[Rfam]
RNA sequence: GGUUUGUAGGCAGUGUAGUUAGCUGAUUGUUUCAUUUCCGCUGCAAUCACUAACAGUACUGCCAACACAAC
Numbered sequence: 001g002g003u004u005u006g007u008a009g010g011c012a013g014u015g016u017a018g019u020u021a022g023c024u025g026a027u028u029g030u031u032u033c034a035u036u037u038c039c040g041c042u043g044c045a046a047u048c049a050c051u052a053a054c055a056g057u058a059c060u061g062c063c064a065a066c067a068c069a070a071c
Base pairs, nucleotide, nucleotide: 003069005067006066009063010062012060013059014058015057016056018054019053020052021051022050024049025048026047027046028045029044030043
Dot-bracket structure: ..(.((..((.(((((.(((((.(((((((............)))))))))))).))))).))..)).)..

Background:
Shown here is a 71-nucleotide RNA sequence from Clupea harengus, a member of the family "mir-34 microRNA precursor family". About the family: Human mir-34a was discovered computationally and later experimentally verified. The mature sequence is excised from the 5' arm of the hairpin. The family's consensus secondary structure was predicted with RNAalifold. NCBI's taxonomy places the organism under Eukaryota, Opisthokonta, Vertebrata, Clupeocephala, Clupea. The literature on the family includes a 2003 paper in Dev Cell by Houbaviy et al., "Embryonic stem cell-specific MicroRNAs". Gene Ontology terms of the family: miRNA-mediated post-transcriptional gene silencing and RISC complex.